[Rfam]
RNA sequence: AUCCCAGUGCAAGGGCGUUACGCAAGGCAAUGAAGAUUUAUCUGAGCCUGUGUUAUUGCUAGUUGAAAACUACUAGUUUUGACUUACCCCUUCACUUGGUCUCCGGAUCAAGUGGGAAUUUUUGGAACCCCCCUGAUGGU
Numbered sequence: 001a002u003c004c005c006a007g008u009g010c011a012a013g014g015g016c017g018u019u020a021c022g023c024a025a026g027g028c029a030a031u032g033a034a035g036a037u038u039u040a041u042c043u044g045a046g047c048c049u050g051u052g053u054u055a056u057u058g059c060u061a062g063u064u065g066a067a068a069a070c071u072a073c074u075a076g077u078u079u080u081g082a083c084u085u086a087c088c089c090c091u092u093c094a095c096u097u098g099g100u101c102u103c104c105g106g107a108u109c110a111a112g113u114g115g116g117a118a119u120u121u122u123u124g125g126a127a128c129c130c131c132c133c134u135g136a137u138g139g140u
Stems, first nucleotide, its partner, number of pairs: 020053005026048003034043003091116011